[Rfam]
RNA sequence: ACAAAUUGUAGAGGUGCAAAUACCAUAAGUACUUUUUCCGAGUGGAGAACGAAGACGAAACUGAAAAGGGGUAUUUGCCGAAGUUAAUUAAGCGUCAUCUUAAUUAGCUGGUGUUGUUAUCGAAAGGGACAACACUGUCAUAGUGAACACUAUGGAGCGCUACUGUUAGG
Dot-bracket structure: .....(.((((....(((((((((.......(..((((..................))))..)......)))))))))...(((((((((((......)))))))))))(((((((((.(.....).))))))))).(((((((....)))))))....)))).).....
Numbered sequence: 001a002c003a004a005a006u007u008g009u010a011g012a013g014g015u016g017c018a019a020a021u022a023c024c025a026u027a028a029g030u031a032c033u034u035u036u037u038c039c040g041a042g043u044g045g046a047g048a049a050c051g052a053a054g055a056c057g058a059a060a061c062u063g064a065a066a067a068g069g070g071g072u073a074u075u076u077g078c079c080g081a082a083g084u085u086a087a088u089u090a091a092g093c094g095u096c097a098u099c100u101u102a103a104u105u106a107g108c109u110g111g112u113g114u115u116g117u118u119a120u121c122g123a124a125a126g127g128g129a130c131a132a133c134a135c136u137g138u139c140a141u142a143g144u145g146a147a148c149a150c151u152a153u154g155g156a157g158c159g160c161u162a163c164u165g166u167u168a169g170g
Stems, first nucleotide, its partner, number of pairs: 006165001008163004016078009032063001035060004082109011110136009120126001138155007
The family of this 170-nucleotide RNA from Vespertiliibacter pulmonis is "Lysine riboswitch aptamer". Taxonomically the source falls in Vespertiliibacter (Bacteria, Gammaproteobacteria, Pasteurellales, Pasteurellaceae).